RNA sequence: AUACGAUAAUAGCAAGAUAGUCGCAAGGCUAUUACGCAAAGCUAAAGGGACUCUCGUAGUCAGCCAGUUGCCGAA
Number, nucleotide and partner (000 for none) at each position: 001a000002u000003a000004c000005g000006a000007u000008a000009a000010u000011a000012g037013c036014a000015a000016g000017a032018u031019a030020g029021u028022c027023g000024c000025a000026a000027g022028g021029c020030u019031a018032u017033u000034a000035c000036g013037c012038a000039a000040a069041g068042c067043u066044a000045a000046a000047g065048g064049g061050a060051c059052u000053c000054u000055c000056g000057u000058a000059g051060u050061c049062a000063g000064c048065c047066a043067g042068u041069u040070g000071c000072c000073g000074a000075a000
The record is a 75-nucleotide RNA from Firmicutes bacterium CAG:552, which matches "c-di-GMP-I riboswitch aptamer" in Rfam.